The record is an 85-nucleotide RNA sequence from Pandoraea pnomenusa, which matches "Burkholderia sRNA 25" in Rfam. Its family is annotated with bacterial biofilm matrix in the Gene Ontology. For this family Rfam cites "Identification of small RNAs abundant in Burkholderia cenocepacia biofilms reveal putative regulators with a potential role in carbon and iron metabolism" (Sass et al., Sci Rep, 2017). Identified by RNA-seq, RACE and Northern blot. Strongly expressed in biofilm. The family's RNA type in Rfam is small RNA. The base pairs follow the family's consensus structure, which was predicted with RNAfold.
[Rfam]
RNA sequence: ACUACGUUCCGCGAGAAGUAGACUUUUGCGUUGAGUGAAAAGUCUCCAAACCUUGGCGCGGCCUCAUUGGCCGCGCUUUUUUUUG
Numbered sequence: 001a002c003u004a005c006g007u008u009c010c011g012c013g014a015g016a017a018g019u020a021g022a023c024u025u026u027u028g029c030g031u032u033g034a035g036u037g038a039a040a041a042g043u044c045u046c047c048a049a050a051c052c053u054u055g056g057c058g059c060g061g062c063c064u065c066a067u068u069g070g071c072c073g074c075g076c077u078u079u080u081u082u083u084u085g
Stems, first nucleotide, its partner, number of pairs: 002021004007016001024040006055077009